[Rfam]
RNA: mir-1302 microRNA precursor family
Organism: Cebus imitator
RNA sequence: UUUUAAAUAUAAAUGUAUCCUAUGCAAUAUUUGGGACAUAUUUGUACUAAAA
Numbered sequence: 001u002u003u004u005a006a007a008u009a010u011a012a013a014u015g016u017a018u019c020c021u022a023u024g025c026a027a028u029a030u031u032u033g034g035g036a037c038a039u040a041u042u043u044g045u046a047c048u049a050a051a052a
Stems, first nucleotide, its partner, number of pairs: 006048001008046005014040003018036004022031001